Overview: Shown here is a 64-nucleotide sequence from Diceros bicornis, a member of the family "MAT2A 3'UTR stem loop B". A reference for the family is Parker et al. (2011), "New families of human regulatory RNA structures identified by comparative analysis of vertebrate genomes", Genome Res. NCBI's taxonomy places the organism under Eukaryota, Chordata, Dipnotetrapodomorpha, Tetrapoda, Diceros bicornis. The family's RNA type in Rfam is cis-regulatory element. Pairs were carried over by alignment from the consensus structure, which is taken from published work.
[Rfam]
RNA sequence: ACAGGCGCUCGGUAUCCUUGUGACGUCAAACAGAGAAGUCACGUGGUAGUACCUGAGGGUCUGU
Numbered sequence: 001a002c003a004g005g006c007g008c009u010c011g012g013u014a015u016c017c018u019u020g021u022g023a024c025g026u027c028a029a030a031c032a033g034a035g036a037a038g039u040c041a042c043g044u045g046g047u048a049g050u051a052c053c054u055g056a057g058g059g060u061c062u063g064u
Base pairs, nucleotide, nucleotide: 001064002063003062004061005060006059008057009056012053016046017045019043020042021041022040023039024038025031026030